[Rfam]
RNA sequence: UACAAAAAAGGCGAUGGGGCUCGCCUUGAACCGCUGUUUUUACAGAUGAUGGCUCCUACUGGCUU
Numbered sequence: 001u002a003c004a005a006a007a008a009a010g011g012c013g014a015u016g017g018g019g020c021u022c023g024c025c026u027u028g029a030a031c032c033g034c035u036g037u038u039u040u041u042a043c044a045g046a047u048g049a050u051g052g053c054u055c056c057u058a059c060u061g062g063c064u065u
Stems, first nucleotide, its partner, number of pairs: 010025004016056006034045003

A member of the RNA family "Fluoride riboswitch aptamer (crcB RNA motif)" from Thermincola carboxydiphila, 65 nucleotides long. The base pairs follow the family's consensus structure, which is taken from published work. Its family is annotated with response to fluoride and positive regulation of gene expression in the Gene Ontology.